A member of the RNA family "mir-146 microRNA precursor family" from Scleropages formosus, 94 nucleotides long.
The family has 33 seed sequences and 1,617 matches in Rfam 15.1.
Lineage of the source: Eukaryota > Bilateria > Actinopterygii > Actinopteri > Scleropages.
[Rfam]
RNA sequence: ACGAGCGUCCGGCUCUGAGAACUGAAUUCCAUAGAUGGUGGGUUACAGAGCGGACGCAUCUAUGGACUCAGUUCUUUUGGCCUGGGGUUCGCGC
Numbered sequence: 001a002c003g004a005g006c007g008u009c010c011g012g013c014u015c016u017g018a019g020a021a022c023u024g025a026a027u028u029c030c031a032u033a034g035a036u037g038g039u040g041g042g043u044u045a046c047a048g049a050g051c052g053g054a055c056g057c058a059u060c061u062a063u064g065g066a067c068u069c070a071g072u073u074c075u076u077u078u079g080g081c082c083u084g085g086g087g088u089u090c091g092c093g094c
Stems, first nucleotide, its partner, number of pairs: 008085002011082003018075008033061004